RNA sequence: CUCUUUCUGCAGUGUCAGUAUUGUAGCCAAUGAGGUUUAUUUGAGGUGUUGUUAUUGCUAAUUGCAAAUUUUUUAAUAUAUAUAAAUUUCAAUAUAUACAUUUAAAAAUUUUCUGAAACAUUCAGAGUUG
Numbered sequence: 001c002u003c004u005u006u007c008u009g010c011a012g013u014g015u016c017a018g019u020a021u022u023g024u025a026g027c028c029a030a031u032g033a034g035g036u037u038u039a040u041u042u043g044a045g046g047u048g049u050u051g052u053u054a055u056u057g058c059u060a061a062u063u064g065c066a067a068a069u070u071u072u073u074u075a076a077u078a079u080a081u082a083u084a085a086a087u088u089u090c091a092a093u094a095u096a097u098a099c100a101u102u103u104a105a106a107a108a109u110u111u112u113c114u115g116a117a118a119c120a121u122u123c124a125g126a127g128u129u130g
Base pairs, nucleotide, nucleotide: 020052021051023049024048026047027046028045034042035041075102076101077100079098080097081096082095083094084093119130120129122127
The record is a 130-nucleotide RNA from Notechis scutatus, which matches "U4 spliceosomal RNA" in Rfam. Gene Ontology terms of the family: spliceosomal tri-snRNP complex assembly and U4 snRNP. From the family's description: U4 small nuclear RNA (U4 snRNA) is a component of the major U2-dependent spliceosome. The base pairs follow the family's consensus structure, which is taken from published work. The organism belongs to Notechis, within Eukaryota. The match comes from Rfam's covariance-model search (49 bits). For this family Rfam cites "The uRNA database" (Zwieb, Nucleic Acids Res, 1997).